[Rfam]
RNA sequence: AGAGUCCCGACAUGGUAAGGGUUAACCACCCACCAUUACCGAGUGUUGCGCCUCUGGCGGAACGGUGCCUUGGUCGUGAAGAUUGGGGCGUGCGUGAACAAGAGAGGUGAAGCGAACAUAGGGUAUGUUGCAGGCGGUUUGGAGACCUAGCUCCUUAGAUGGAAUCGCUUCGAAAUGAACAGUCCCGGUUGGCCAGCGUUGUAACUUGCGUGAAGCCCAUACGAAGCAAGCGCAUUGGUUAGCCUGUAGCGAGCCGGCGGAGUUCUCAAUCU
Numbered sequence: 001a002g003a004g005u006c007c008c009g010a011c012a013u014g015g016u017a018a019g020g021g022u023u024a025a026c027c028a029c030c031c032a033c034c035a036u037u038a039c040c041g042a043g044u045g046u047u048g049c050g051c052c053u054c055u056g057g058c059g060g061a062a063c064g065g066u067g068c069c070u071u072g073g074u075c076g077u078g079a080a081g082a083u084u085g086g087g088g089c090g091u092g093c094g095u096g097a098a099c100a101a102g103a104g105a106g107g108u109g110a111a112g113c114g115a116a117c118a119u120a121g122g123g124u125a126u127g128u129u130g131c132a133g134g135c136g137g138u139u140u141g142g143a144g145a146c147c148u149a150g151c152u153c154c155u156u157a158g159a160u161g162g163a164a165u166c167g168c169u170u171c172g173a174a175a176u177g178a179a180c181a182g183u184c185c186c187g188g189u190u191g192g193c194c195a196g197c198g199u200u201g202u203a204a205c206u207u208g209c210g211u212g213a214a215g216c217c218c219a220u221a222c223g224a225a226g227c228a229a230g231c232g233c234a235u236u237g238g239u240u241a242g243c244c245u246g247u248a249g250c251g252a253g254c255c256g257g258c259g260g261a262g263u264u265c266u267c268a269a270u271c272u
Stems, first nucleotide, its partner, number of pairs: 012036004019031004023241004039122002043119004047114002049109007059099001164266001167263006185257006191217003196211004222251002226247003230243002
Description:
Group II catalytic intron D1-D4-6: a 272-nucleotide RNA sequence from Thioalkalivibrio denitrificans. Rfam 15.1 lists 1,617 matches to the family in 661 species. Taxonomically the source falls in Thioalkalivibrio (Bacteria, Pseudomonadati, Pseudomonadota, Gammaproteobacteria).